[Rfam]
RNA sequence: AGAUCCUUUAAAAUUAGUCCCGUGAGGCUAGUAAGGUAACUUCCAUUAAAGUUAAGUUUAACUUUACAAGGUGCUCCUAGUCUGAUUACAGACUGGGAGCUCUUUCA
Numbered sequence: 001a002g003a004u005c006c007u008u009u010a011a012a013a014u015u016a017g018u019c020c021c022g023u024g025a026g027g028c029u030a031g032u033a034a035g036g037u038a039a040c041u042u043c044c045a046u047u048a049a050a051g052u053u054a055a056g057u058u059u060a061a062c063u064u065u066a067c068a069a070g071g072u073g074c075u076c077c078u079a080g081u082c083u084g085a086u087u088a089c090a091g092a093c094u095g096g097g098a099g100c101u102c103u104u105u106c107a
Stems, first nucleotide, its partner, number of pairs: 005036004014031006047066008071102001073100012